[Rfam]
RNA sequence: AGAGUAAAUCGGUUUGUCGCCACUUGUGGAGGAAAGUCCGGACACCAAAGGGAAGCAUAGCGGGUAAUGCCCGUCCGUUGUAAAACGAGGACAAGUGCAACAGAAAGCAAGUACAGUUCGGCUGUAGUGAAAUCAGGUAAACUCUAUGCGGUGCAACGCCAUGUAAACCAGCGUUUGAGGGUGCCCGCCCGAUGUUGGAGGGUAGGCGGUUUGAACUUAUAGGUAACUAUAAAUCAAGAUAAAUGACAAACACUUUUCAGUUGAAAAGAACAGAAUCCGGCUUAUGAUUUACUCUUUUU
Numbered sequence: 001a002g003a004g005u006a007a008a009u010c011g012g013u014u015u016g017u018c019g020c021c022a023c024u025u026g027u028g029g030a031g032g033a034a035a036g037u038c039c040g041g042a043c044a045c046c047a048a049a050g051g052g053a054a055g056c057a058u059a060g061c062g063g064g065u066a067a068u069g070c071c072c073g074u075c076c077g078u079u080g081u082a083a084a085a086c087g088a089g090g091a092c093a094a095g096u097g098c099a100a101c102a103g104a105a106a107g108c109a110a111g112u113a114c115a116g117u118u119c120g121g122c123u124g125u126a127g128u129g130a131a132a133u134c135a136g137g138u139a140a141a142c143u144c145u146a147u148g149c150g151g152u153g154c155a156a157c158g159c160c161a162u163g164u165a166a167a168c169c170a171g172c173g174u175u176u177g178a179g180g181g182u183g184c185c186c187g188c189c190c191g192a193u194g195u196u197g198g199a200g201g202g203u204a205g206g207c208g209g210u211u212u213g214a215a216c217u218u219a220u221a222g223g224u225a226a227c228u229a230u231a232a233a234u235c236a237a238g239a240u241a242a243a244u245g246a247c248a249a250a251c252a253c254u255u256u257u258c259a260g261u262u263g264a265a266a267a268g269a270a271c272a273g274a275a276u277c278c279g280g281c282u283u284a285u286g287a288u289u290u291a292c293u294c295u296u297u298u299u
Base pairs, nucleotide, nucleotide: 001295002294003293004292005291006290007289008288009287010286011285012251013250014249015248016247017246018245020029021028022027034283035282036281038280039279040278041277042276043153044152045151046150050186051185052184055149056148057147058146059145060074061073062072063071064070075089076087077086078085079084090144091143095142096141097138098137112126113125114124115123116122117121157208158207159206160205168198169197170196171195172194179190180189181188182187215234217232218231219230220229221228222227